[Rfam]
RNA sequence: AUAAAAUAGAAUCUCCGAGCCGUUGCGCCUGAGGGGAUGCCUCCCCAUGGCAUGCGGCCAAUGGGUACAGUUGGAAACGGCUGUGCCUCCCGGUAUGGAAAGGAGACCUCAAGGCUCGGUC
Numbered sequence: 001a002u003a004a005a006a007u008a009g010a011a012u013c014u015c016c017g018a019g020c021c022g023u024u025g026c027g028c029c030u031g032a033g034g035g036g037a038u039g040c041c042u043c044c045c046c047a048u049g050g051c052a053u054g055c056g057g058c059c060a061a062u063g064g065g066u067a068c069a070g071u072u073g074g075a076a077a078c079g080g081c082u083g084u085g086c087c088u089c090c091c092g093g094u095a096u097g098g099a100a101a102g103g104a105g106a107c108c109u110c111a112a113g114g115c116u117c118g119g120u121c
Stems, first nucleotide, its partner, number of pairs: 012106005019058005027051003033046004063088011089098002
Shown here is a 121-nucleotide RNA sequence from Geoalkalibacter subterraneus, a member of the family "Molybdenum/Tungsten riboswitch aptamer (Moco RNA motif)".